[Rfam]
The record is a 95-nucleotide RNA from Serratia sp. DD3, which matches "sraA" in Rfam. Pairs were carried over by alignment from the consensus structure, which was predicted with RNAalifold. Lineage of the source: Bacteria > Pseudomonadota > Gammaproteobacteria > Yersiniaceae > Serratia. Rfam classes the family as a small RNA. A reference for the family is Argaman et al. (2001), "Novel small RNA-encoding genes in the intergenic regions of Escherichia coli", Curr Biol.
RNA sequence: UGAAUCAAGAGUAUAUGGGGAUGAUCUUCAUACAUUCAACGGCAGAAUGCAGAGAAAAAAAAUGGGGGACAGAAUCCCCCAUUUUACCAUUAACU
Numbered sequence: 001u002g003a004a005u006c007a008a009g010a011g012u013a014u015a016u017g018g019g020g021a022u023g024a025u026c027u028u029c030a031u032a033c034a035u036u037c038a039a040c041g042g043c044a045g046a047a048u049g050c051a052g053a054g055a056a057a058a059a060a061a062a063u064g065g066g067g068g069a070c071a072g073a074a075u076c077c078c079c080c081a082u083u084u085u086a087c088c089a090u091u092a093a094c095u
Base pairs, nucleotide, nucleotide: 010036011035012034016032017031019029020028060084061083062082063081064080065079066078067077068076069075